[Rfam]
RNA sequence: CACUCCUGUUUCUGCCUCAUAUUCCCUUGCUCCAUGGAAUAAUGGGUUCUGGUGAUGGAGAAGAUCAAGCCCGCCGUCGUCUCUGCGAUUUGAUACUUUGUUGAGUUCGAGGACGGGAUCGUGAAAACGCAUAUACCCAGGCCCGCCAGACAGAUUGGCGGCUCUGAAUUGUCGUUUCUACAUCU
Numbered sequence: 001c002a003c004u005c006c007u008g009u010u011u012c013u014g015c016c017u018c019a020u021a022u023u024c025c026c027u028u029g030c031u032c033c034a035u036g037g038a039a040u041a042a043u044g045g046g047u048u049c050u051g052g053u054g055a056u057g058g059a060g061a062a063g064a065u066c067a068a069g070c071c072c073g074c075c076g077u078c079g080u081c082u083c084u085g086c087g088a089u090u091u092g093a094u095a096c097u098u099u100g101u102u103g104a105g106u107u108c109g110a111g112g113a114c115g116g117g118a119u120c121g122u123g124a125a126a127a128c129g130c131a132u133a134u135a136c137c138c139a140g141g142c143c144c145g146c147c148a149g150a151c152a153g154a155u156u157g158g159c160g161g162c163u164c165u166g167a168a169u170u171g172u173c174g175u176u177u178c179u180a181c182a183u184c185u
Stems, first nucleotide, its partner, number of pairs: 003060004016046004020041006070117004075112001077110003081105003085101001123178004129173001138166004143160001145159005
Small nucleolar RNA snR43: a 185-nucleotide RNA sequence from Ogataea polymorpha. Clan: SNORA9 clan. The family's consensus secondary structure is taken from published work. Rfam links the family to the GO terms nucleolus and RNA processing. A search with the family's covariance model found it, with a score of 107 bits. It is annotated as an H/ACA-box small nucleolar RNA. The literature on the family includes a 1996 paper in Cell by Balakin et al., "The RNA world of the nucleolus: two major families of small RNAs defined by different box elements with related functions".